[Rfam]
RNA: TPP riboswitch aptamer (THI element)
RNA sequence: GUCCCGUGACAGGGGCGUCCGGGGUUUCCGGGCUGAGAAGCACCCUUUGAACCUGAACCAGAUCAUGCUGGCGGAGGAAGUCGCACCCCGAGGGCC
Numbered sequence: 001g002u003c004c005c006g007u008g009a010c011a012g013g014g015g016c017g018u019c020c021g022g023g024g025u026u027u028c029c030g031g032g033c034u035g036a037g038a039a040g041c042a043c044c045c046u047u048u049g050a051a052c053c054u055g056a057a058c059c060a061g062a063u064c065a066u067g068c069u070g071g072c073g074g075a076g077g078a079a080g081u082c083g084c085a086c087c088c089c090g091a092g093g094g095c096c
Stems, first nucleotide, its partner, number of pairs: 006084005011046004016040001017033005052077003058071004